Description: RT-16 RNA: a 159-nucleotide RNA.
RNA sequence: CUUAGUGAGAGGUAAGAUGCCUUAAACUAUGGCUACACGUCAGUUUAUUAGCACAUUAUUUAGAUUUAUUUUAAGUUAUAAAAUACAGAAGUUUCUUGCGAGGAAUUUCAGUGAAGAAAUUCGUUAUGAAUUUCCCAAUUGGUAAAUUGGCUACAUAAC
Numbered sequence: 001c002u003u004a005g006u007g008a009g010a011g012g013u014a015a016g017a018u019g020c021c022u023u024a025a026a027c028u029a030u031g032g033c034u035a036c037a038c039g040u041c042a043g044u045u046u047a048u049u050a051g052c053a054c055a056u057u058a059u060u061u062a063g064a065u066u067u068a069u070u071u072u073a074a075g076u077u078a079u080a081a082a083a084u085a086c087a088g089a090a091g092u093u094u095c096u097u098g099c100g101a102g103g104a105a106u107u108u109c110a111g112u113g114a115a116g117a118a119a120u121u122c123g124u125u126a127u128g129a130a131u132u133u134c135c136c137a138a139u140u141g142g143u144a145a146a147u148u149g150g151c152u153a154c155a156u157a158a159c
Stems, first nucleotide, its partner, number of pairs: 001031001003029004009023006039151010053121001056118002059115003088109005095102002
Dot-bracket structure: (.((((..((((((...))))))..)))).).......((((((((((....(..((.(((..........................(((((..((....))..)))))...))).))..)....................))))))))))........
The family's consensus secondary structure is taken from published work.